The record is a 113-nucleotide RNA from Nesterenkonia sandarakina, which matches "mraW RNA" in Rfam. It scores 55 bits against the family's covariance model. NCBI's taxonomy places the organism under Bacteria, Actinomycetota, Micrococcales, Micrococcaceae, Nesterenkonia. The family has 45 seed sequences and 851 matches in Rfam 15.1.
RNA sequence: AGGGGAUCCUUGGGUGAGUUCUUCCGCCGCCCGGCCGCAUUCCUGACUUAUCUUCCCCGAUGUCAGGCAGCAGGCCGGAGCGGAGGAGGAGCUGGUCCAAGGAUCCUUCCCUA
Numbered sequence: 001a002g003g004g005g006a007u008c009c010u011u012g013g014g015u016g017a018g019u020u021c022u023u024c025c026g027c028c029g030c031c032c033g034g035c036c037g038c039a040u041u042c043c044u045g046a047c048u049u050a051u052c053u054u055c056c057c058c059g060a061u062g063u064c065a066g067g068c069a070g071c072a073g074g075c076c077g078g079a080g081c082g083g084a085g086g087a088g089g090a091g092c093u094g095g096u097c098c099a100a101g102g103a104u105c106c107u108u109c110c111c112u113a
Base pairs, nucleotide, nucleotide: 010100011099012098013097014096015095018092019091021089022088023087024086025085027083028082029081030080031078032077033076034075035074037071038070042067043066044065045064046063047062049060
Rfam classes the family as a cis-regulatory element.